[Rfam]
RNA sequence: CCUGGUUUGCGAAUGGCACUAGAAGAAUUCACGGGGAUAUUCUACAGCCCGUGGUCUUUGAGUGCCAUCCUCAAAGCCUU
Numbered sequence: 001c002c003u004g005g006u007u008u009g010c011g012a013a014u015g016g017c018a019c020u021a022g023a024a025g026a027a028u029u030c031a032c033g034g035g036g037a038u039a040u041u042c043u044a045c046a047g048c049c050c051g052u053g054g055u056c057u058u059u060g061a062g063u064g065c066c067a068u069c070c071u072c073a074a075a076g077c078c079u080u
Stems, first nucleotide, its partner, number of pairs: 004077001006075004013068006020061001022059001023057001025056002029054006